[Rfam]
epsC RNA: a 111-nucleotide sequence from Paenibacillus cellulosilyticus. A search with the family's covariance model found it, with a score of 96 bits. It is annotated as a cis-regulatory element. Rfam 15.1 lists 450 matches to the family in 334 species. Taxonomically the source falls in Paenibacillus (Bacteria, Bacillota, Bacilli, Caryophanales).
RNA sequence: AGGUGAUGUCUACUAGACCGUUAUCAACGUAGGCACUCGGAUGCGCCGUGGGUUAUUGGGCCUUAGACGUACAUCGUCGAUGGUGUGUUGUGAGGCGGGGUUCGAUGCCCU
Numbered sequence: 001a002g003g004u005g006a007u008g009u010c011u012a013c014u015a016g017a018c019c020g021u022u023a024u025c026a027a028c029g030u031a032g033g034c035a036c037u038c039g040g041a042u043g044c045g046c047c048g049u050g051g052g053u054u055a056u057u058g059g060g061c062c063u064u065a066g067a068c069g070u071a072c073a074u075c076g077u078c079g080a081u082g083g084u085g086u087g088u089u090g091u092g093a094g095g096c097g098g099g100g101u102u103c104g105a106u107g108c109c110c111u
Base pairs, nucleotide, nucleotide: 002019003018004017007035008034009033010032011031012030013029036094037093038092039091040089041088042087043086044085045084046083047082050063051062052061053060054059066078067077068076069075097111098110099109100108101107